[Rfam]
RNA: Fluoride riboswitch aptamer (crcB RNA motif)
RNA sequence: GUGGGCCCCGGCGAUGGAUCCCGCCAGGACGCGCAGCGUCCGAACUGCCGCCCCGGCUGAUGGCUCCUGCUCCGUC
Numbered sequence: 001g002u003g004g005g006c007c008c009c010g011g012c013g014a015u016g017g018a019u020c021c022c023g024c025c026a027g028g029a030c031g032c033g034c035a036g037c038g039u040c041c042g043a044a045c046u047g048c049c050g051c052c053c054c055g056g057c058u059g060a061u062g063g064c065u066c067c068u069g070c071u072c073c074g075u076c
Base pairs, nucleotide, nucleotide: 010025011024012023013022016067017066018065020063021062047057048056049055